[Rfam]
RNA: SAM riboswitch aptamer (S box leader)
Organism: Natronincola peptidivorans
RNA sequence: CUCUUAUAAAGAGUGGCGGAGGGACUGGCCCAAUGAAGCCCGGCAACCAGCACAGUAAAGUGUAUGGUGCUAAAUCCUGUAGGUAUUAUACCUAAGAGAUGAGAG
Numbered sequence: 001c002u003c004u005u006a007u008a009a010a011g012a013g014u015g016g017c018g019g020a021g022g023g024a025c026u027g028g029c030c031c032a033a034u035g036a037a038g039c040c041c042g043g044c045a046a047c048c049a050g051c052a053c054a055g056u057a058a059a060g061u062g063u064a065u066g067g068u069g070c071u072a073a074a075u076c077c078u079g080u081a082g083g084u085a086u087u088a089u090a091c092c093u094a095a096g097a098g099a100u101g102a103g104a105g
Stems, first nucleotide, its partner, number of pairs: 001105007013041001015040003021031003025079001027077002042071004047067002050063004075097001080094006
Dot-bracket structure: (((((((.....(.(((...(((.[.[[)))......))))((((.((.((((......))))..))))))...(]].]((((((...))))))..).)))))))